[Rfam]
RNA sequence: GGAGGCCAUGCGCCACGGAAGCUGUGCGCGUGGCAUAUUGGACUAGCGGUUAGAGGAGACCCCUCCCAUCAC
Number, nucleotide and partner (000 for none) at each position: 001g066002g065003a064004g063005g062006c041007c040008a000009u000010g034011c033012g000013c000014c030015a000016c028017g027018g000019a000020a000021g000022c000023u000024g000025u000026g000027c017028g016029c000030g014031u000032g000033g011034c010035a000036u000037a000038u000039u000040g007041g006042a000043c000044u000045a000046g000047c000048g061049g060050u059051u058052a000053g000054a000055g000056g000057a000058g051059a050060c049061c048062c005063c004064u003065c002066c001067c000068a000069u000070c000071a000072c000

A member of the RNA family "Flavivirus DB element" from Orthoflavivirus denguei, 72 nucleotides long.
It is annotated as a cis-regulatory element.
Pairs were carried over by alignment from the consensus structure, which is taken from published work.
On this family, see Chiu et al., J Virol 2005: "Control of translation by the 5'- and 3'-terminal regions of the dengue virus genome".
This family represents the flavivirus 3' UTR elements DB1 and DB2. These DB elements are thought to be required for efficient translation.
Lineage of the source: Viruses > Orthornavirae > Kitrinoviricota > Flasuviricetes > Dengue virus.
It is one of the family's seed sequences.